[Rfam]
RNA: Ribosomal S15 leader
RNA sequence: UGCUCUGGCUGGAUUAGUGAUCGGCUAGAGAUUAUUUAUUACAUAUUUGGAGAGACACAUGUCACUAAGUACUGAAGCGAAAGCAAAAAUCCUGGCUGAAUUUGGCCGUGGUGAG
Numbered sequence: 001u002g003c004u005c006u007g008g009c010u011g012g013a014u015u016a017g018u019g020a021u022c023g024g025c026u027a028g029a030g031a032u033u034a035u036u037u038a039u040u041a042c043a044u045a046u047u048u049g050g051a052g053a054g055a056c057a058c059a060u061g062u063c064a065c066u067a068a069g070u071a072c073u074g075a076a077g078c079g080a081a082a083g084c085a086a087a088a089a090u091c092c093u094g095g096c097u098g099a100a101u102u103u104g105g106c107c108g109u110g111g112u113g114a115g
Base pairs, nucleotide, nucleotide: 007026008025009024010023011022012021046069047068048067049066050065052063